Shown here is a 339-nucleotide RNA from Clostridium sp. MD294, a member of the family "Bacterial RNase P class A". By type it is a ribozyme. Rfam links the family to the GO terms dimeric ribonuclease P complex, ribonuclease P activity and tRNA processing.
RNA sequence: AGAGUAAGUUGAAUGGUCGCAUUUUUUUAAAAAAGUGAGGAAAGUCCGGGCUUCAUAGAGCAGAGUGCCAGUUAACGGCUGGUGGAGGCGACUCUAAGGAAAGUGCAACAGAAAUAAACCGCCUAUAUUAUAUAGGUAAGGGUGGAAAGGUGGAGUAAAAGCCCACCGCUUUGCUGGUAACAGCAAAGGCUAUGUAAACCCCACUUGAAGCAAGGCGAAAGGAACAAUAAAGAAUGGCUCGUUCUGUUCCGUAAAAAAGCCGCAUGAUGAUACUGGUGACAGUAUACCAAGAUAGAUGACCAUUCACGACAGAACCCGGCUUAUAGACUUGCUCUAAUA
Numbered sequence: 001a002g003a004g005u006a007a008g009u010u011g012a013a014u015g016g017u018c019g020c021a022u023u024u025u026u027u028u029a030a031a032a033a034a035g036u037g038a039g040g041a042a043a044g045u046c047c048g049g050g051c052u053u054c055a056u057a058g059a060g061c062a063g064a065g066u067g068c069c070a071g072u073u074a075a076c077g078g079c080u081g082g083u084g085g086a087g088g089c090g091a092c093u094c095u096a097a098g099g100a101a102a103g104u105g106c107a108a109c110a111g112a113a114a115u116a117a118a119c120c121g122c123c124u125a126u127a128u129u130a131u132a133u134a135g136g137u138a139a140g141g142g143u144g145g146a147a148a149g150g151u152g153g154a155g156u157a158a159a160a161g162c163c164c165a166c167c168g169c170u171u172u173g174c175u176g177g178u179a180a181c182a183g184c185a186a187a188g189g190c191u192a193u194g195u196a197a198a199c200c201c202c203a204c205u206u207g208a209a210g211c212a213a214g215g216c217g218a219a220a221g222g223a224a225c226a227a228u229a230a231a232g233a234a235u236g237g238c239u240c241g242u243u244c245u246g247u248u249c250c251g252u253a254a255a256a257a258a259g260c261c262g263c264a265u266g267a268u269g270a271u272a273c274u275g276g277u278g279a280c281a282g283u284a285u286a287c288c289a290a291g292a293u294a295g296a297u298g299a300c301c302a303u304u305c306a307c308g309a310c311a312g313a314a315c316c317c318g319g320c321u322u323a324u325a326g327a328c329u330u331g332c333u334c335u336a337a338u339a
Stems, first nucleotide, its partner, number of pairs: 001335010011324001012304007020037007042322003046319005051210004058240004063206005068082005083097001084095004098201002103199002105195003119141002121137007149167005168190001169188008214261003221252001222250001224248001231245005270285006